[Rfam]
RNA sequence: GAAAAUGCUUUCUAGGGUUCCGUUGAUGAAAAUCAAGUCUGGUCCGAGAGAAGGCGGCAUAGAUGCAAGGUGCAUCAUGCUACACGGAAGGAUAAAAGCCUGGGAGAC
Numbered sequence: 001g002a003a004a005a006u007g008c009u010u011u012c013u014a015g016g017g018u019u020c021c022g023u024u025g026a027u028g029a030a031a032a033u034c035a036a037g038u039c040u041g042g043u044c045c046g047a048g049a050g051a052a053g054g055c056g057g058c059a060u061a062g063a064u065g066c067a068a069g070g071u072g073c074a075u076c077a078u079g080c081u082a083c084a085c086g087g088a089a090g091g092a093u094a095a096a097a098g099c100c101u102g103g104g105a106g107a108c
Base pairs, nucleotide, nucleotide: 007055008054009053010052011051012050015045016044020042021041022039023036024035025034026033027032056081057080058079059078060077062075083103085106089101090100091099

The family of this 108-nucleotide sequence from Halalkalibacter wakoensis is "Guanidine-I riboswitch aptamer". It scores 86 bits against the family's covariance model. Pairs were carried over by alignment from the consensus structure.